A member of the RNA family "Bacterial RNase P class A" from Clostridium sp. CAG:508, 350 nucleotides long.

RNA sequence: GUAGUAAGUUGGAUAGUCGCGUAUAGCAAAGCCGAAAGGCUGCGUACGAGGAAAGUCUGGGCUCCAUAGAGUAAUGAUGCUGGAUAACGUCCAGUGAGGGUAACCUUAAGGAAAGUGCAACAGAAAAUAACCGCUGUAUUAUACAGUAAGGGUGAAAAGGCAGGGUAAGAGCCUACCGCUAAUAUGGUGACAUAUUAGGCAGUGUAAACCCCAUCUGGAGCAACACCGAGCAGGAAGGCUAAGACUACUCGUCAUCUUCCGAUUUGGUGGCAUGAGACUUAUAGUAAUAUAAGUAGUAGAUAAAUGACUAUCUUAAAUGACAGAACCCGGCUUAUAGAUUUACUAUAUUA
Numbered sequence: 001g002u003a004g005u006a007a008g009u010u011g012g013a014u015a016g017u018c019g020c021g022u023a024u025a026g027c028a029a030a031g032c033c034g035a036a037a038g039g040c041u042g043c044g045u046a047c048g049a050g051g052a053a054a055g056u057c058u059g060g061g062c063u064c065c066a067u068a069g070a071g072u073a074a075u076g077a078u079g080c081u082g083g084a085u086a087a088c089g090u091c092c093a094g095u096g097a098g099g100g101u102a103a104c105c106u107u108a109a110g111g112a113a114a115g116u117g118c119a120a121c122a123g124a125a126a127a128u129a130a131c132c133g134c135u136g137u138a139u140u141a142u143a144c145a146g147u148a149a150g151g152g153u154g155a156a157a158a159g160g161c162a163g164g165g166u167a168a169g170a171g172c173c174u175a176c177c178g179c180u181a182a183u184a185u186g187g188u189g190a191c192a193u194a195u196u197a198g199g200c201a202g203u204g205u206a207a208a209c210c211c212c213a214u215c216u217g218g219a220g221c222a223a224c225a226c227c228g229a230g231c232a233g234g235a236a237g238g239c240u241a242a243g244a245c246u247a248c249u250c251g252u253c254a255u256c257u258u259c260c261g262a263u264u265u266g267g268u269g270g271c272a273u274g275a276g277a278c279u280u281a282u283a284g285u286a287a288u289a290u291a292a293g294u295a296g297u298a299g300a301u302a303a304a305u306g307a308c309u310a311u312c313u314u315a316a317a318u319g320a321c322a323g324a325a326c327c328c329g330g331c332u333u334a335u336a337g338a339u340u341u342a343c344u345a346u347a348u349u350a
Stems, first nucleotide, its partner, number of pairs: 001346010011335001012312007020048005053333003057330005062220004071249001076215004080094005095109001096107004110211002115209002117205003131151002133147006159177002162174003178200001179198008224269004233260006243253003277294007
The source organism's lineage runs through Bacteria, Bacillati, Bacillota, Eubacteriales and Clostridium.